[Rfam]
RNA sequence: AAAAAAAAAGGAAAAUGCCUGGUAGUUUGCUGGCUUGUGUAGACUUUUAAGAUUUAAUCCUGAUUUUAUUAUCACC
Numbered sequence: 001a002a003a004a005a006a007a008a009a010g011g012a013a014a015a016u017g018c019c020u021g022g023u024a025g026u027u028u029g030c031u032g033g034c035u036u037g038u039g040u041a042g043a044c045u046u047u048u049a050a051g052a053u054u055u056a057a058u059c060c061u062g063a064u065u066u067u068a069u070u071a072u073c074a075c076c
Base pairs, nucleotide, nucleotide: 001067002066003065004064
RNA: Small nucleolar RNA SNORD19